This 87-nucleotide RNA from Bifidobacterium psychraerophilum belongs to the Rfam family "tRNA". It scores 53 bits against the family's covariance model. From the family's description: Transfer RNA (tRNA) molecules are approximately 80 nucleotides in length. Rfam 15.1 lists 5,335,975 matches to the family in 14,413 species. The family's consensus secondary structure is taken from published work.
[Rfam]
RNA sequence: GGAGACGUGCCUGAGUGGCCGAAAGGGGCACCCUGCUAAGGUGUUGAUCACGCAAGUGGUCCAGGAGUUCGAAUCUCCUCGUCUCCG
Numbered sequence: 001g002g003a004g005a006c007g008u009g010c011c012u013g014a015g016u017g018g019c020c021g022a023a024a025g026g027g028g029c030a031c032c033c034u035g036c037u038a039a040g041g042u043g044u045u046g047a048u049c050a051c052g053c054a055a056g057u058g059g060u061c062c063a064g065g066a067g068u069u070c071g072a073a074u075c076u077c078c079u080c081g082u083c084u085c086c087g
Stems, first nucleotide, its partner, number of pairs: 001086007010026003028044005063079005